[Rfam]
RNA sequence: GCCUUUAUGGCCAAGUUGGUAAGGCAUCGCACUAGUAAUGCGGAGAUCACUCGGUUCAAAUCCGAGUGAAGGCA
Numbered sequence: 001g002c003c004u005u006u007a008u009g010g011c012c013a014a015g016u017u018g019g020u021a022a023g024g025c026a027u028c029g030c031a032c033u034a035g036u037a038a039u040g041c042g043g044a045g046a047u048c049a050c051u052c053g054g055u056u057c058a059a060a061u062c063c064g065a066g067u068g069a070a071g072g073c074a
Stems, first nucleotide, its partner, number of pairs: 001073007010025003027043005050066005